The record is a 125-nucleotide sequence from Erinaceus europaeus, which matches "U11 spliceosomal RNA" in Rfam. Rfam classes the family as a spliceosomal small nuclear RNA. Pairs were carried over by alignment from the consensus structure, which is taken from published work. Taxonomically the source falls in Erinaceus (Eukaryota, Metazoa, Deuterostomia, Euteleostomi). The literature on the family includes a 1988 paper in Proc Natl Acad Sci U S A by Montzka and Steitz, "Additional low-abundance human small nuclear ribonucleoproteins: U11, U12, etc".
RNA sequence: AAAAAGGGCUUCUGUCAUGAGUGACACACGUAGGGCAGCUCAUUUGCUCUAUGUGCGAAAUUGACAUCAAGAGAUUUCAAAAACAUGAUUUUUGUUUUUUGGACACCUGGUGAUUGUUGGUCCUG
Numbered sequence: 001a002a003a004a005a006g007g008g009c010u011u012c013u014g015u016c017a018u019g020a021g022u023g024a025c026a027c028a029c030g031u032a033g034g035g036c037a038g039c040u041c042a043u044u045u046g047c048u049c050u051a052u053g054u055g056c057g058a059a060a061u062u063g064a065c066a067u068c069a070a071g072a073g074a075u076u077u078c079a080a081a082a083a084c085a086u087g088a089u090u091u092u093u094g095u096u097u098u099u100u101g102g103a104c105a106c107c108u109g110g111u112g113a114u115u116g117u118u119g120g121u122c123c124u125g
Base pairs, nucleotide, nucleotide: 008084010082011081013026014025015024016023017022027055028054029053030052031051032050033049034048035047036046037045038044057078058077059076060075061074062073108125109124110123112122113121114120115119